[Rfam]
RNA sequence: AGUAGGCUUUCAGCGUACGCUGGCAUAGCGCCGAACGUACGCAAUCCUCUUUGGUGAAUCGAACGAUCCCAAUCAUCUCAUCUUCUUCAAAACGCUCCAGCGCAUCGCUAAGACCAGACUGAACGCCGCGCGGCAGGUCACACUGGGUGAUAUCCCCGUUGACGAUAACCGUAACGUUCUCCCCGAGGCGGGUU
Numbered sequence: 001a002g003u004a005g006g007c008u009u010u011c012a013g014c015g016u017a018c019g020c021u022g023g024c025a026u027a028g029c030g031c032c033g034a035a036c037g038u039a040c041g042c043a044a045u046c047c048u049c050u051u052u053g054g055u056g057a058a059u060c061g062a063a064c065g066a067u068c069c070c071a072a073u074c075a076u077c078u079c080a081u082c083u084u085c086u087u088c089a090a091a092a093c094g095c096u097c098c099a100g101c102g103c104a105u106c107g108c109u110a111a112g113a114c115c116a117g118a119c120u121g122a123a124c125g126c127c128g129c130g131c132g133g134c135a136g137g138u139c140a141c142a143c144u145g146g147g148u149g150a151u152a153u154c155c156c157c158g159u160u161g162a163c164g165a166u167a168a169c170c171g172u173a174a175c176g177u178u179c180u181c182c183c184c185g186a187g188g189c190g191g192g193u194u
Stems, first nucleotide, its partner, number of pairs: 003053004014041006061078001063076001065074003083112002088107001093102003113193003117189001119188002125134003137166003144158003171183001174180001

Rfam assigns this 194-nucleotide RNA from Kluyvera genomosp. 3 to the family "Yersinia sRNA 251".
The literature on the family includes a 2015 paper in PLoS Genet by Nuss et al., "Transcriptomic profiling of Yersinia pseudotuberculosis reveals reprogramming of the Crp regulon by temperature and uncovers Crp as a master regulator of small RNAs".
The family's consensus secondary structure was predicted with RNAfold.
Lineage of the source: Bacteria > Pseudomonadota > Gammaproteobacteria > Enterobacterales > Kluyvera.
It is annotated as an antisense RNA.